[Rfam]
Nucleotides: 109
Base pairs, nucleotide, nucleotide: 001109002108003107004106014099015098016097017096024043026041027040028039046086047085048084049083050082051080052079065077066076067075
Number, partner (000 for none) and nucleotide at each position: 001109g002108g003107g004106a005000u006000a007000u008000g009000a010000u011000g012000a013000g014099u015098g016097g017096u018000c019000a020000a021000a022000a023000u024043a025000u026041u027040g028039c029000a030000u031000u032000u033000u034000a035000a036000u037000u038000u039028g040027c041026a042000u043024u044000a045000u046086g047085g048084g049083u050082g051080u052079u053000u054000a055000g056000c057000c058000c059000a060000a061000a062000g063000c064000c065077u066076g067075u068000u069000a070000c071000g072000a073000c074000a075067a076066u077065a078000u079052a080051g081000g082050c083049a084048c085047u086046c087000u088000c089000c090000u091000c092000u093000u094000c095000a096017a097016c098015c099014a100000a101000u102000c103000u104000g105000a106004u107003c108002c109001c
The family of this 109-nucleotide sequence from Apium graveolens is "Small nucleolar RNA Z279/snoR105/snoR108". Its family is annotated with RNA processing and nucleolus in the Gene Ontology. This family includes the plant snoRNAs known as Z279, snoR105 and snoR108. The match comes from Rfam's covariance-model search (85 bits). The family has 20 seed sequences and 906 matches in Rfam 15.1. The source organism's lineage runs through Eukaryota, Streptophytina, Gunneridae, Pentapetalae and Apium.